A member of the RNA family "Small nucleolar RNA SNORA17" from Formicarius rufipectus, 131 nucleotides long.
RNA sequence: AUUGCAAAGAAGUUACAGGCAUGGCUGCAGUGCCACGUUUGUGUCAUUCGGUGGCAGAGAGGACAAGGCGAGGUCUUCCCCUGGUGCUCUGACCCACGUGGGCUCCCAGGAUUUCUCAACAGCCUGACAUU
Numbered sequence: 001a002u003u004g005c006a007a008a009g010a011a012g013u014u015a016c017a018g019g020c021a022u023g024g025c026u027g028c029a030g031u032g033c034c035a036c037g038u039u040u041g042u043g044u045c046a047u048u049c050g051g052u053g054g055c056a057g058a059g060a061g062g063a064c065a066a067g068g069c070g071a072g073g074u075c076u077u078c079c080c081c082u083g084g085u086g087c088u089c090u091g092a093c094c095c096a097c098g099u100g101g102g103c104u105c106c107c108a109g110g111a112u113u114u115c116u117c118a119a120c121a122g123c124c125u126g127a128c129a130u131u
Stems, first nucleotide, its partner, number of pairs: 002053001003051001006048002009045002015042004020037001022035004066125004070117003077111003083107002086103004

A reference for the family is Ofengand and Bakin (1997), "Mapping to nucleotide resolution of pseudouridine residues in large subunit ribosomal RNAs from representative eukaryotes, prokaryotes, archaebacteria, mitochondria and chloroplasts", J Mol Biol.